[Rfam]
RNA sequence: CUGCUGUGAUGACUUUAGAUGCAACUGACCUGGAAUUGCUGACCUCUGGGUCAGCUCUGUUCAGGAAAUGACUUCAGUUAAUCUUCUCUCUGAGCAG
Numbered sequence: 001c002u003g004c005u006g007u008g009a010u011g012a013c014u015u016u017a018g019a020u021g022c023a024a025c026u027g028a029c030c031u032g033g034a035a036u037u038g039c040u041g042a043c044c045u046c047u048g049g050g051u052c053a054g055c056u057c058u059g060u061u062c063a064g065g066a067a068a069u070g071a072c073u074u075c076a077g078u079u080a081a082u083c084u085u086c087u088c089u090c091u092g093a094g095c096a097g
Base pairs, nucleotide, nucleotide: 003095004094038055039054040053041052